Shown here is a 148-nucleotide sequence from Bisgaardia hudsonensis, a member of the family "Molybdenum/Tungsten riboswitch aptamer (Moco RNA motif)". For this family Rfam cites "in molybdenum cofactor and tungsten cofactor metabolism" (Regulski et al., Mol Microbiol, 2008). It scores 72 bits against the family's covariance model.
RNA sequence: UUAAACGCAUAACUCCGAGCUUGUUUACCUAAGUUUAUGAUAAAUAAUAAAUAGGGUAGCAAUGCCAGUAACCUUAAGUUACUCAGGGAUAAUAUUGGAAACGGUUUAUCCUAUCGUUGUUUUACAAAGGUGUCCGAUGCAAAAAACU
Numbered sequence: 001u002u003a004a005a006c007g008c009a010u011a012a013c014u015c016c017g018a019g020c021u022u023g024u025u026u027a028c029c030u031a032a033g034u035u036u037a038u039g040a041u042a043a044a045u046a047a048u049a050a051a052u053a054g055g056g057u058a059g060c061a062a063u064g065c066c067a068g069u070a071a072c073c074u075u076a077a078g079u080u081a082c083u084c085a086g087g088g089a090u091a092a093u094a095u096u097g098g099a100a101a102c103g104g105u106u107u108a109u110c111c112u113a114u115c116g117u118u119g120u121u122u123u124a125c126a127a128a129g130g131u132g133u134c135c136g137a138u139g140c141a142a143a144a145a146a147c148u
Stems, first nucleotide, its partner, number of pairs: 006139001012133002015130002019065002022062001025059005033052006068082005086112006094105004114124001